Rfam assigns this 509-nucleotide part of an RNA from Thioalkalivibrio paradoxus to the family "Bacterial large subunit ribosomal RNA". On this family, see Cannone et al., BMC Bioinformatics 2002: "The comparative RNA web (CRW) site: an online database of comparative sequence and structure information for ribosomal, intron, and other RNAs". It scores 2936 bits against the family's covariance model. Lineage of the source: Bacteria > Pseudomonadota > Gammaproteobacteria > Thioalkalivibrio > Thioalkalivibrio paradoxus.

Nucleotides: 509
Base pairs, nucleotide, nucleotide: 007504008503009502010501011500012499013498014497015496016495022489023453024452027424028423029421030420031419032418033417034416035415036413037412038167039166046108047107048106049062050061051060068102069101070100071099072098073097074096077090078089079088113122114121115120123136124135125134126133127132138164139163140162141161142160143159144158145157146156171202172200173199174198175197176196182189183188212219213218222409223250224249225248226247227246233241234240253406254405255404256403263341264340265339266338267337271333272332273331274330275329277325278324279323283298284297285296287294301305307319308318309317354378355377356376357375358374359373360372361371385400386399387398388397389396440447441446463475464474465473466472
Number, partner (000 for none) and nucleotide at each position: 001000g002000g003000u004000u005000a006000a007504g008503c009502g010501c011500a012499c013498a014497c015496g016495g017000u018000g019000g020000a021000u022489g023453c024452c025000u026000a027424g028423g029421c030420g031419g032418u033417a034416g035415g036413a037412g038167g039166c040000g041000a042000u043000g044000a045000a046108g047107g048106a049062c050061g051060u052000a053000g054000u055000a056000g057000c058000c059000u060051g061050c062049g063000a064000u065000a066000a067000g068102c069101c070100u071099c072098g073097g074096g075000g076000a077090g078089c079088u080000g081000g082000c083000a084000a085000a086000c087000a088079a089078g090077c091000u092000u093000u094000g095000a096074u097073c098072c099071g100070g101069g102068g103000a104000u105000u106048u107047c108046c109000g110000a111000a112000u113122g114121g115120g116000g117000a118000a119000a120115c121114c122113c123136a124135c125134c126133u127132c128000u129000u130000c131000g132127g133126a134125g135124g136123u137000a138164u139163c140162c141161g142160u143159a144158c145157c146156u147000g148000a149000a150000u151000c152000c153000a154000u155000a156146g157145g158144g159143u160142a161141c162140g163139g164138a165000g166039g167038c168000g169000a170000a171202c172200c173199u174198g175197g176196g177000g178000a179000a180000c181000u182189g183188a184000a185000a186000c187000a188183u189182c190000u191000a192000a193000g194000u195000a196176c197175c198174c199173a200172g201000a202171g203000g204000a205000a206000a207000a208000g209000a210000a211000a212219u213218c214000a215000a216000u217000u218213g219212a220000g221000a222409u223250u224249c225248c226247g227246u228000c229000a230000g231000u232000a233241g234240c235000g236000g237000c238000g239000a240234g241233c242000g243000a244000a245000a246227g247226c248225g249224g250223a251000u252000c253406a254405g255404c256403c257000c258000u259000u260000a261000a262000g263341c264340a265339u266338u267337u268000u269000u270000u271333g272332g273331u274330c275329u276000a277325g278324c279323a280000g281000a282000a283298c284297g285296g286000u287294c288000u289000g290000g291000a292000a293000a294287g295000u296285c297284c298283g299000g300000c301305c302000a303000u304000a305301g306000u307319g308318g309317g310000u311000g312000a313000u314000a315000g316000c317309c318308c319307c320000g321000u322000a323279u324278g325277c326000g327000a328000a329275a330274g331273g332272c333271c334000u335000u336000u337267a338266a339265a340264u341263g342000u343000g344000a345000a346000a347000u348000c349000g350000a351000g352000u353000a354378g355377g356376g357375c358374g359373g360372g361371g362000c363000a364000c365000g366000u367000g368000a369000a370000a371361c372360c373359c374358u375357g376356u377355c378354u379000g380000a381000a382000c383000a384000u385400g386399g387398g388397g389396g390000g391000a392000c393000c394000a395000u396389c397388c398387u399386c400385c401000a402000a403256g404255g405254c406253u407000a408000a409222a410000u411000a412037c413036u414000a415035c416034c417033u418032a419031c420030c421029g422000a423028c424027c425000g426000a427000u428000a429000g430000u431000g432000a433000a434000c435000c436000a437000g438000u439000a440447c441446c442000g443000u444000g445000a446441g447440g448000g449000a450000a451000a452024g453023g454000c455000g456000a457000a458000a459000a460000g461000a462000a463475c464474c465473c466472c467000g468000g469000a470000g471000a472466g473465g474464g475463g476000a477000g478000u479000g480000a481000a482000a483000u484000a485000g486000a487000a488000c489022c490000u491000g492000a493000a494000a495016c496015c497014g498013u499012g500011u501010g502009c503008g504007u505000a506000c507000a508000a509000g